Bacterial RNase P class A: a 408-nucleotide RNA from Paracoccus sphaerophysae.
Rfam classes the family as a ribozyme.
Pairs were carried over by alignment from the consensus structure, which is taken from published work.
RNA sequence: GCGGAUGGCCGGAUGACCGCGGCGCCCCCUUGGGGGGUGUCGAGGAAAGUCCGGGCUCCAUGCAGGCAUGGUGCCGGGUAACGCCCGGCGGGGGCAACCCCAGGGAAAGCGCCACAGAGAACAGACCGCCGGCGGCGGGGCUCCCUCGAGGGGCGCGGCCGCAGGCAAGGGUGAAACGGUGGGGUAAAAGCCCACCGCGGGACGGGCAACCGGACCGGCAGGGCAAGCCCCACCAGGAGCAAUGCCGAAUAGGGAUCGCGCGCGGGGGCAACCUCGCAGGGCCGCCUGCGCCCCAGCAGAUCCGGGUUGGCAGCUUGAUCCCGUCGGCAACGGCGGGACCAGAGGAAUGGUCAUCCAGAGGGGCGCGAGCCCCUUGGACAGAACCCGGCUUACAGGCCAUCCGCGCGA
Number, nucleotide and partner (000 for none) at each position: 001g404002c403003g402004g401005a400006u399007g398008g397009c396010c395011g393012g355013a354014u353015g352016a351017c350018c349019g000020c042021g041022g040023c039024g038025c037026c036027c035028c034029c000030u000031u000032g000033g000034g028035g027036g026037g025038u024039g023040u022041c021042g020043a000044g000045g000046a000047a391048a390049g389050u000051c388052c387053g386054g385055g384056c239057u238058c237059c236060a000061u000062g000063c000064a000065g287066g286067c000068a000069u235070g234071g233072u232073g231074c088075c087076g086077g085078g084079u000080a000081a000082c000083g000084c078085c077086c076087g075088g074089c103090g101091g100092g099093g098094g000095c000096a000097a000098c093099c092100c091101c090102a000103g089104g230105g229106a000107a000108a000109g228110c227111g224112c223113c222114a000115c000116a000117g000118a000119g000120a000121a000122c000123a000124g000125a000126c170127c169128g166129c165130c164131g000132g162133c161134g160135g159136c158137g000138g000139g000140g000141c000142u000143c000144c000145c000146u000147c000148g000149a000150g000151g000152g000153g000154c000155g000156c000157g000158g136159c135160c134161g133162c132163a000164g130165g129166c128167a000168a000169g127170g126171g000172u000173g000174a000175a000176a000177c000178g196179g195180u194181g193182g192183g191184g000185u000186a000187a000188a000189a000190g000191c183192c182193c181194a180195c179196c178197g219198c217199g216200g215201g000202a000203c212204g211205g210206g000207c000208a000209a000210c205211c204212g203213g000214a000215c200216c199217g198218g000219c197220a000221g000222g113223g112224c111225a000226a000227g110228c109229c105230c104231c073232a072233c071234c070235a069236g059237g058238a057239g056240c000241a000242a000243u312244g311245c310246c309247g000248a000249a000250u000251a000252g000253g303254g302255a301256u300257c299258g000259c000260g000261c000262g000263c000264g000265g000266g000267g000268g000269c000270a000271a000272c000273c000274u000275c000276g000277c000278a000279g293280g292281g291282c290283c000284g000285c000286c066287u065288g000289c000290g282291c281292c280293c279294c000295a000296g000297c000298a000299g257300a256301u255302c254303c253304g000305g000306g000307u000308u000309g246310g245311c244312a243313g000314c000315u000316u000317g000318a000319u338320c337321c336322c335323g334324u333325c332326g331327g000328c000329a000330a000331c326332g325333g324334c323335g322336g321337g320338a319339c000340c000341a000342g000343a000344g000345g000346a000347a000348u000349g018350g017351u016352c015353a014354u013355c012356c000357a000358g000359a000360g000361g000362g000363g000364c000365g000366c000367g000368a000369g000370c000371c000372c000373c000374u000375u000376g000377g000378a000379c000380a000381g000382a000383a000384c055385c054386c053387g052388g051389c049390u048391u047392a000393c011394a000395g010396g009397c008398c007399a006400u005401c004402c003403g002404c001405g000406c000407g000408a000